[Rfam]
Annotation:
This 79-nucleotide RNA from Arabis nemorensis belongs to the Rfam family "Small nucleolar RNA R21". A reference for the family is Barneche et al. (2001), "Identification of 66 box C/D snoRNAs in Arabidopsis thaliana: extensive gene duplications generated multiple isoforms predicting new ribosomal RNA 2'-O-methylation sites", J Mol Biol. Lineage of the source: Eukaryota > Euphyllophyta > Mesangiospermae > Arabideae > Arabis. It scores 70 bits against the family's covariance model. It is annotated as a C/D-box small nucleolar RNA.
RNA sequence: AAUCCCUAUGAUGACUUUGUGAUUAAAAAAUGUUAAAAGUAGUGACUGAUAUUGAUGAAAUUCUCAGCUCUGAGGGAUU
Numbered sequence: 001a002a003u004c005c006c007u008a009u010g011a012u013g014a015c016u017u018u019g020u021g022a023u024u025a026a027a028a029a030a031u032g033u034u035a036a037a038a039g040u041a042g043u044g045a046c047u048g049a050u051a052u053u054g055a056u057g058a059a060a061u062u063c064u065c066a067g068c069u070c071u072g073a074g075g076g077a078u079u
Stems, first nucleotide, its partner, number of pairs: 001079006